A member of the RNA family "U4atac minor spliceosomal RNA" from Geotrypetes seraphini, 126 nucleotides long. Its Rfam clan is "U4 clan". It scores 105 bits against the family's covariance model. The organism belongs to Geotrypetes, within Eukaryota. From the family's description: U4atac is an essential component of the minor U12-type spliceosome complex which is required for removal of the rarer class of eukaryotic introns (AT-AC, U12-type).
RNA sequence: ACCAUCCUUGUCUUGGGGUUGCGUUGCUAUUCAAUGAACGUAUAGUGAGAACAGCACUGCUAACACCUGAACAACACAUAAGUAUCACUAAUGCAUUAGCAUUAGAAAGGUACAAUUUUUGGAACC
Numbered sequence: 001a002c003c004a005u006c007c008u009u010g011u012c013u014u015g016g017g018g019u020u021g022c023g024u025u026g027c028u029a030u031u032c033a034a035u036g037a038a039c040g041u042a043u044a045g046u047g048a049g050a051a052c053a054g055c056a057c058u059g060c061u062a063a064c065a066c067c068u069g070a071a072c073a074a075c076a077c078a079u080a081a082g083u084a085u086c087a088c089u090a091a092u093g094c095a096u097u098a099g100c101a102u103u104a105g106a107a108a109g110g111u112a113c114a115a116u117u118u119u120u121g122g123a124a125c126c
Stems, first nucleotide, its partner, number of pairs: 006018004021060003026055003030051003038046002082113005089104006